[Rfam]
A member of the RNA family "skipping-rope RNA" from bacterium 1xD42-87, 97 nucleotides long. The family's consensus secondary structure is taken from published work.
RNA sequence: GUUAGCCGAGGUGGUAAAUUUCGUAGCGACCACACGCCGAUGGUAUUGACAGGGGAAACCCGAGAGAUGCAGGAGAAUGCUACGCCUGCCGGUUAAU
Dot-bracket structure: ((((((((..(((((.......[[[[[.))))).(.((..............)).........)....(((((.....]]]]].)))))))))))))
It scores 48 bits against the family's covariance model.